The record is a 272-nucleotide part of an RNA from an uncultured bacterium, which matches "Bacterial large subunit ribosomal RNA" in Rfam.

RNA sequence: AUUAGGAUUCUUGAAGGGAAGUUGUCCUUAGUACGAGAGGACCGGGACAAAGGAACCUCUGGCGUGCCGGCUAUUCCGCCAGGAGUAAAGGCCGGGUAACUAUGUUCCUAAGGGAUAAGCGCUGAAGGCAUAUAAGCGCGAAGCUCGUUCCAAGACUAGGAAUCCCUUUCCGGAUUCGUCCGGAAUGUAGGCUGGUGGGAGACUACCACCUAAUAGGGUGCAGGUGUAAGCGCAGUAAUGUGCUCAGCCGAGCACUACUAAUAAGCCAAUCG
Numbered sequence: 001a002u003u004a005g006g007a008u009u010c011u012u013g014a015a016g017g018g019a020a021g022u023u024g025u026c027c028u029u030a031g032u033a034c035g036a037g038a039g040g041a042c043c044g045g046g047a048c049a050a051a052g053g054a055a056c057c058u059c060u061g062g063c064g065u066g067c068c069g070g071c072u073a074u075u076c077c078g079c080c081a082g083g084a085g086u087a088a089a090g091g092c093c094g095g096g097u098a099a100c101u102a103u104g105u106u107c108c109u110a111a112g113g114g115a116u117a118a119g120c121g122c123u124g125a126a127g128g129c130a131u132a133u134a135a136g137c138g139c140g141a142a143g144c145u146c147g148u149u150c151c152a153a154g155a156c157u158a159g160g161a162a163u164c165c166c167u168u169u170c171c172g173g174a175u176u177c178g179u180c181c182g183g184a185a186u187g188u189a190g191g192c193u194g195g196u197g198g199g200a201g202a203c204u205a206c207c208a209c210c211u212a213a214u215a216g217g218g219u220g221c222a223g224g225u226g227u228a229a230g231c232g233c234a235g236u237a238a239u240g241u242g243c244u245c246a247g248c249c250g251a252g253c254a255c256u257a258c259u260a261a262u263a264a265g266c267c268a269a270u271c272g
Stems, first nucleotide, its partner, number of pairs: 005165008016151004022050007051109006060102003067095005072087006112146003119139005168185006190267004194210005214260003217256005223249002230243005